[Rfam]
Nucleotides: 093
Base pairs, nucleotide, nucleotide: 001093003091004090005089006088007087014037015036016035017034018033019032039080040079041078042076043075046074047073048072052066053065054064055063
Number, partner (000 for none) and nucleotide at each position: 001093c002000a003091c004090u005089c006088u007087g008000a009000a010000g011000a012000g013000c014037c015036g016035c017034c018033g019032g020000a021000g022000c023000u024000u025000u026000c027000g028000u029000c030000g031000a032019c033018c034017g035016g036015c037014g038000c039080a040079c041078c042076g043075a044000a045000g046074g047073a048072g049000c050000a051000a052066g053065c054064g055063g056000g057000c058000c059000a060000u061000c062000c063055c064054c065053g066052c067000g068000a069000a070000a071000a072048c073047u074046c075043u076042c077000a078041g079040g080039u081000u082000c083000a084000g085000g086000a087007c088006a089005g090004a091003g092000g093001g

The record is a 93-nucleotide sequence from Stutzerimonas nosocomialis, which matches "Glycine riboswitch aptamer" in Rfam.
NCBI's taxonomy places the organism under Bacteria, Pseudomonadota, Gammaproteobacteria, Pseudomonadales, Stutzerimonas.
A search with the family's covariance model found it, with a score of 43 bits.